Rfam assigns this 115-nucleotide RNA sequence from Pseudomonas sp. 8AS to the family "Guanidine-I riboswitch aptamer". Its family is annotated with regulation of gene expression in the Gene Ontology. NCBI's taxonomy places the organism under Bacteria, Pseudomonadati, Pseudomonadota, Gammaproteobacteria, Pseudomonas. About the family: This family represents a conserved RNA structure found upstream of the ykkC and yxkD genes in Bacillus subtilis and related genes in other bacteria.
RNA sequence: GCAAUGGUCGACUAGGGUUCCGGCUUGCCCGCUCCGCAACGAGACGGGCAAGCGACUGGUCCGAGAGUGGACAACCUCGGCAGAGGUCACACGGCGGGACAAAAGCCCGGGAGAA
Number, nucleotide and partner (000 for none) at each position: 001g000002c000003a000004a000005u000006g000007g072008u071009c070010g000011a068012c067013u000014a000015g062016g061017g000018u000019u000020c059021c058022g056023g053024c052025u051026u050027g049028c048029c047030c046031g045032c000033u000034c000035c000036g000037c000038a000039a000040c000041g000042a000043g000044a000045c031046g030047g029048g028049c027050a026051a025052g024053c023054g000055a000056c022057u000058g021059g020060u000061c016062c015063g000064a000065g000066a000067g012068u011069g000070g009071a008072c007073a000074a087075c086076c085077u084078c083079g000080g000081c000082a000083g078084a077085g076086g075087u074088c000089a000090c110091a000092c113093g000094g000095c000096g108097g107098g106099a000100c000101a000102a000103a000104a000105g000106c098107c097108c096109g000110g090111g000112a000113g092114a000115a000